The family of this 52-nucleotide RNA from Camelus dromedarius is "mir-1302 microRNA precursor family". A reference for the family is Morin et al. (2008), "Application of massively parallel sequencing to microRNA profiling and discovery in human embryonic stem cells", Genome Res. The source organism's lineage runs through Eukaryota, Vertebrata, Dipnotetrapodomorpha, Amniota and Camelus.
[Rfam]
RNA sequence: UUGUAAGCAUAAGUAUGUCUCAUGCAAUAUUUGGGGCAUACUUAUACUAAAG
Numbered sequence: 001u002u003g004u005a006a007g008c009a010u011a012a013g014u015a016u017g018u019c020u021c022a023u024g025c026a027a028u029a030u031u032u033g034g035g036g037c038a039u040a041c042u043u044a045u046a047c048u049a050a051a052g
Base pairs, nucleotide, nucleotide: 006048007047009045010044011043012042014040015039016038018036019035020034021033022031